Small nucleolar RNA SNORA74: a 199-nucleotide sequence from Vulpes vulpes. Its Rfam clan is "SNORA74 clan". It scores 105 bits against the family's covariance model. NCBI's taxonomy places the organism under Eukaryota, Eumetazoa, Bilateria, Boreoeutheria, Vulpes. Gene Ontology terms of the family: nucleolus and RNA processing. The family's RNA type in Rfam is H/ACA-box small nucleolar RNA. The family's consensus secondary structure was predicted with PFOLD.

RNA sequence: UCCAGCAGUAGUCAGCUGUCCGGAUAGACCCAUUCCUGUGAUGGUGUUACACUGCUGGGAGAGGAACGUCUUCUUCCUCCAGUUGCCUCUGUUACUGUUUUGGUGGCGCCUGGCACUGGUACAAGGCAGAACUAUGCUUCCUUGAGAGUAUGCUGAGCGUUCACUCUGGCCGCUUGGUUCUAGUCAGGGAGCAGACAUA
Numbered sequence: 001u002c003c004a005g006c007a008g009u010a011g012u013c014a015g016c017u018g019u020c021c022g023g024a025u026a027g028a029c030c031c032a033u034u035c036c037u038g039u040g041a042u043g044g045u046g047u048u049a050c051a052c053u054g055c056u057g058g059g060a061g062a063g064g065a066a067c068g069u070c071u072u073c074u075u076c077c078u079c080c081a082g083u084u085g086c087c088u089c090u091g092u093u094a095c096u097g098u099u100u101u102g103g104u105g106g107c108g109c110c111u112g113g114c115a116c117u118g119g120u121a122c123a124a125g126g127c128a129g130a131a132c133u134a135u136g137c138u139u140c141c142u143u144g145a146g147a148g149u150a151u152g153c154u155g156a157g158c159g160u161u162c163a164c165u166c167u168g169g170c171c172g173c174u175u176g177g178u179u180c181u182a183g184u185c186a187g188g189g190a191g192c193a194g195a196c197a198u199a
Stems, first nucleotide, its partner, number of pairs: 001059009011050002015045006021038001022036003071131004076126003083118001084115004090108007135193007152178001154176006
Dot-bracket structure: (((((((((.((..((((((((((.........))).).))))))...)))))))))))...........((((.(((....(((((..(((((((.....)))))))...))))..).....))).))))...(((((((..........(.((((((...........)))))).)........)))))))......